The family of this 99-nucleotide RNA sequence from Nocardiopsis dassonvillei is "TPP riboswitch aptamer (THI element)". Rfam links the family to the GO term thiamine pyrophosphate binding. NCBI's taxonomy places the organism under Bacteria, Actinomycetota, Streptosporangiales, Nocardiopsis dassonvillei, Nocardiopsis dassonvillei subsp. dassonvillei.
RNA sequence: UCCGGAGGCGCGGGGUGCCGGGACACGUUCCCGGCUGAGAGCACACCCGUCGAACCUGCCCUAGUUAGCACUAGCGAAGGAACGCCAUGAGCGCGUACA
Numbered sequence: 001u002c003c004g005g006a007g008g009c010g011c012g013g014g015g016u017g018c019c020g021g022g023a024c025a026c027g028u029u030c031c032c033g034g035c036u037g038a039g040a041g042c043a044c045a046c047c048c049g050u051c052g053a054a055c056c057u058g059c060c061c062u063a064g065u066u067a068g069c070a071c072u073a074g075c076g077a078a079g080g081a082a083c084g085c086c087a088u089g090a091g092c093g094c095g096u097a098c099a
Base pairs, nucleotide, nucleotide: 007086008085009084010083011049012048013047014046016043017035018034019033020032021031022030023029055080056079057078061074062073063072064071
It scores 58 bits against the family's covariance model.